[Rfam]
RNA: ASpks TB sRNA
RNA sequence: CUUGAUGGAGCCGAGCCACAGCGGCCGCUCGGCCGGGCGCUCCUGGCCGUACGUGGCGAGCAGGGCCUGCGCCUC
Numbered sequence: 001c002u003u004g005a006u007g008g009a010g011c012c013g014a015g016c017c018a019c020a021g022c023g024g025c026c027g028c029u030c031g032g033c034c035g036g037g038c039g040c041u042c043c044u045g046g047c048c049g050u051a052c053g054u055g056g057c058g059a060g061c062a063g064g065g066c067c068u069g070c071g072c073c074u075c
Base pairs, nucleotide, nucleotide: 015025016024017023032070033069038065043060044059047056048055049054